[Rfam]
RNA sequence: AGGAAACAUCAAGAAAGAGUGAUGACACUCUUACCAACCUGCCAACUCCGGCAAGGUGGUUUAAACGAUGUGGCUUUCAGCAACUAAAGGAGGUAAU
Numbered sequence: 001a002g003g004a005a006a007c008a009u010c011a012a013g014a015a016a017g018a019g020u021g022a023u024g025a026c027a028c029u030c031u032u033a034c035c036a037a038c039c040u041g042c043c044a045a046c047u048c049c050g051g052c053a054a055g056g057u058g059g060u061u062u063a064a065a066c067g068a069u070g071u072g073g074c075u076u077u078c079a080g081c082a083a084c085u086a087a088a089g090g091a092g093g094u095a096a097u
Base pairs, nucleotide, nucleotide: 006071007070008069009068010067015032016031017030018029019028020027033060034059035058038056039055040054041052042051043050046092047091048090049089073081074080075079
Background: The record is a 97-nucleotide RNA, which matches "SAM-I/IV (S-adenosyl methionine) riboswitch aptamer" in Rfam. For this family Rfam cites "The aptamer core of SAM-IV riboswitches mimics the ligand-binding site of SAM-I riboswitches" (Weinberg et al., RNA, 2008). Its family is annotated with S-adenosylmethionine metabolic process and regulation of gene expression in the Gene Ontology. The base pairs follow the family's consensus structure, which is taken from published work.